Notes
The family of this 124-nucleotide RNA from Novosphingobium sp. 9U is "Manganese Mn2+ riboswitch aptamer (yybP-ykoY)". Taxonomically the source falls in Novosphingobium (Bacteria, Pseudomonadati, Alphaproteobacteria, Sphingomonadaceae). Rfam describes the family as follows. This RNA was originally discovered in E. coli during a large scale screen and was named SraF. The family was later found to exist upstream of related families of protein genes in many bacteria, including the the yybP and ykoK genes in B. subtilis. The specific functions of these proteins are unknown, but this structured RNA element may be involved in their genetic regulation as a riboswitch.
[Rfam]
RNA sequence: AUUCCCGUCAUUGGGGAGUAGCCGACCGCUCGGGUUCGAGCGGGCCGCACGUCAACAUACUUGGUCGAGAGGCUAUGGCGUGCGGAGGGUGGCGCGAAGAUCGCGGAAGCGGUCGGCGCCGUUC
Number, nucleotide and partner (000 for none) at each position: 001a000002u000003u000004c000005c000006c000007g000008u000009c000010a000011u000012u000013g000014g000015g000016g000017a000018g000019u000020a000021g000022c000023c000024g000025a000026c043027c042028g041029c000030u000031c000032g000033g000034g000035u000036u000037c000038g000039a000040g000041c028042g027043g026044g000045c085046c084047g083048c082049a081050c080051g079052u078053c077054a076055a000056c000057a000058u000059a000060c000061u000062u075063g074064g073065u072066c071067g000068a000069g000070a000071g066072g065073c064074u063075a062076u054077g053078g052079c051080g050081u049082g048083c047084g046085g045086a000087g000088g000089g000090u000091g000092g000093c000094g000095c000096g000097a000098a000099g000100a000101u000102c000103g000104c000105g000106g000107a000108a000109g000110c000111g000112g000113u000114c000115g000116g000117c000118g000119c000120c000121g000122u000123u000124c000